U4 spliceosomal RNA: a 150-nucleotide sequence from Ursus americanus. U4 small nuclear RNA (U4 snRNA) is a component of the major U2-dependent spliceosome. Its family is annotated with spliceosomal tri-snRNP complex assembly and U4 snRNP in the Gene Ontology. It scores 84 bits against the family's covariance model.
RNA sequence: AGCUUUGCGCAGUGGCAGUAUCGUAGCCAAUGAGGUUUAUCCGAGGCGCGAUUAUUGCUAAUUGAAAACAAAAUGUCAUGCAUAACUCUACUGUGUAAUUUGUUCCAUCCUAGCAGUUUUCACAGUGAGUUAUGAACAUUGAGUUAACAG
Numbered sequence: 001a002g003c004u005u006u007g008c009g010c011a012g013u014g015g016c017a018g019u020a021u022c023g024u025a026g027c028c029a030a031u032g033a034g035g036u037u038u039a040u041c042c043g044a045g046g047c048g049c050g051a052u053u054a055u056u057g058c059u060a061a062u063u064g065a066a067a068a069c070a071a072a073a074u075g076u077c078a079u080g081c082a083u084a085a086c087u088c089u090a091c092u093g094u095g096u097a098a099u100u101u102g103u104u105c106c107a108u109c110c111u112a113g114c115a116g117u118u119u120u121c122a123c124a125g126u127g128a129g130u131u132a133u134g135a136a137c138a139u140u141g142a143g144u145u146a147a148c149a150g
Base pairs, nucleotide, nucleotide: 020052021051022050023049024048026047027046028045034042035041090126091125092124093123094122095121097119098118100116101115102114103113104112139150140149141148